[Rfam]
RNA sequence: CGGUGAUGUCUCCUCGCCGUUAUCCAAGGGGGCACUCGGCCAUUCUGUGGGAUCAGGGAUCUUUUCCUUAGACGCUUGUCGUCAUUGGAGUGGUGUGAGGGCGGGUUGGAUGCCCU
Dot-bracket structure: [[[[..(((((((..]]]]........)))))))((((((((((((..((((((...))).....)))..((((.....))))...)))))))).))))...((((.....)))).
Numbered sequence: 001c002g003g004u005g006a007u008g009u010c011u012c013c014u015c016g017c018c019g020u021u022a023u024c025c026a027a028g029g030g031g032g033c034a035c036u037c038g039g040c041c042a043u044u045c046u047g048u049g050g051g052a053u054c055a056g057g058g059a060u061c062u063u064u065u066c067c068u069u070a071g072a073c074g075c076u077u078g079u080c081g082u083c084a085u086u087g088g089a090g091u092g093g094u095g096u097g098a099g100g101g102c103g104g105g106u107u108g109g110a111u112g113c114c115c116u
Stems, first nucleotide, its partner, number of pairs: 001019004007034007035099004039094008049068003052060003071083004103115004
About this RNA: The record is a 116-nucleotide sequence from Bacillus sp. NRRL B-14911, which matches "epsC RNA" in Rfam. NCBI's taxonomy places the organism under Bacteria, Bacillati, Bacillota, Bacilli, Bacillus. The sequence is in the family's curated seed alignment.